[Rfam]
RNA sequence: GCUAUACUGAAAUUAAAGAUUACUGCGGUUGCGAGAGCCGCAAGGCUCUCAUUCAGCCCUAGCUGACUGCCCUCCUAGUCGCUAGGGUGUUUUU
Number, nucleotide and partner (000 for none) at each position: 001g000002c000003u000004a000005u000006a000007c000008u000009g000010a000011a000012a000013u000014u000015a000016a000017a000018g000019a000020u000021u000022a000023c000024u000025g000026c000027g000028g000029u000030u000031g000032c000033g050034a049035g048036a047037g046038c045039c044040g000041c000042a000043a000044g039045g038046c037047u036048c035049u034050c033051a000052u000053u000054c000055a000056g088057c087058c086059c085060u084061a083062g082063c000064u081065g080066a079067c078068u077069g000070c000071c000072c000073u000074c000075c000076u000077a068078g067079u066080c065081g064082c062083u061084a060085g059086g058087g057088u056089g000090u000091u000092u000093u000094u000
A member of the RNA family "atoC RNA" from Geobacter sp. DSM 9736, 94 nucleotides long. It scores 69 bits against the family's covariance model. By type it is a cis-regulatory element. The organism belongs to Geobacter, within Bacteria. The family's consensus secondary structure is taken from published work.